[Rfam]
RNA sequence: UUACUGGACGCUUUACCUAAUGAACUGUUUUGUCCCUCUCAGACAGAGAACAAUUUGUUUUUUGACAGAGAACGACAAAACAGUUCAAUAACUAAAGAGCCCAGUAAC
Numbered sequence: 001u002u003a004c005u006g007g008a009c010g011c012u013u014u015a016c017c018u019a020a021u022g023a024a025c026u027g028u029u030u031u032g033u034c035c036c037u038c039u040c041a042g043a044c045a046g047a048g049a050a051c052a053a054u055u056u057g058u059u060u061u062u063u064g065a066c067a068g069a070g071a072a073c074g075a076c077a078a079a080a081c082a083g084u085u086c087a088a089u090a091a092c093u094a095a096a097g098a099g100c101c102c103a104g105u106a107a108c
Stems, first nucleotide, its partner, number of pairs: 001107006011097005018090002021087008029069006049059004
Dot-bracket structure: ((((((....(((((..((.((((((((((((((..............((((...))))....))))))..........)))))))).))..)))))....)))))).
This 108-nucleotide sequence from Plutella xylostella belongs to the Rfam family "mir-8517 microRNA precursor family". The base pairs follow the family's consensus structure, which was predicted with RNAalifold. Its family is annotated with RISC complex and miRNA-mediated post-transcriptional gene silencing in the Gene Ontology. NCBI's taxonomy places the organism under Eukaryota, Bilateria, Protostomia, Amphiesmenoptera, Plutella.